[Rfam]
RNA sequence: AUUUUUCUUCGGGGAAGGGUGUGAAUCCCUACCGGCGGUAUAGCCCGCGAACCGCUUAUGCGGUUGAACUGGUGUAAUUCCAGUGCCGACAGUUAUAGUCUGGAUGAGAGAAGAUCACU
Numbered sequence: 001a002u003u004u005u006u007c008u009u010c011g012g013g014g015a016a017g018g019g020u021g022u023g024a025a026u027c028c029c030u031a032c033c034g035g036c037g038g039u040a041u042a043g044c045c046c047g048c049g050a051a052c053c054g055c056u057u058a059u060g061c062g063g064u065u066g067a068a069c070u071g072g073u074g075u076a077a078u079u080c081c082a083g084u085g086c087c088g089a090c091a092g093u094u095a096u097a098g099u100c101u102g103g104a105u106g107a108g109a110g111a112a113g114a115u116c117a118c119u
Base pairs, nucleotide, nucleotide: 003117006114007113008112009111010110017029018028019027031099032098033088034087035048036047037046038045043086044085051064052063053062068084069083070082071081072080090102091101092100

Shown here is a 119-nucleotide sequence from Peptoclostridium litorale, a member of the family "FMN riboswitch aptamer (RFN element)".
Rfam describes the family as follows. The RFN element is a highly conserved domain that is found frequently in the 5'-untranslated regions of prokaryotic mRNAs that encode for flavin mononucleotide (FMN) biosynthesis and transport proteins.
Gene Ontology term of the family: FMN binding.
A search with the family's covariance model found it, with a score of 115 bits.
The family's consensus secondary structure is taken from published work.